Small nucleolar RNA SNORA33: a 131-nucleotide RNA sequence from Jaculus jaculus. Lineage of the source: Eukaryota > Deuterostomia > Gnathostomata > Dipodinae > Jaculus. Rfam links the family to the GO terms nucleolus and RNA processing. The match comes from Rfam's covariance-model search (104 bits). ACA33 is a member of the H/ACA class of snoRNA that guide the sites of modification of uridines to pseudouridines.
RNA sequence: CAGCCAGCCAAUUACUCUGCUUCUCUGAAUGUGUUUCUACAGAAACUUAGAAACAGCUGGCGAUACUGAUGCCAUUUUAUGAGACUUAAGGACAACUGAGGUCAUUAUGGUCCCUCAAAAUGACUACAAAU
Numbered sequence: 001c002a003g004c005c006a007g008c009c010a011a012u013u014a015c016u017c018u019g020c021u022u023c024u025c026u027g028a029a030u031g032u033g034u035u036u037c038u039a040c041a042g043a044a045a046c047u048u049a050g051a052a053a054c055a056g057c058u059g060g061c062g063a064u065a066c067u068g069a070u071g072c073c074a075u076u077u078u079a080u081g082a083g084a085c086u087u088a089a090g091g092a093c094a095a096c097u098g099a100g101g102u103c104a105u106u107a108u109g110g111u112c113c114c115u116c117a118a119a120a121u122g123a124c125u126a127c128a129a130a131u
Stems, first nucleotide, its partner, number of pairs: 003061005016043004071124001073122002083111001085109001087107003091103003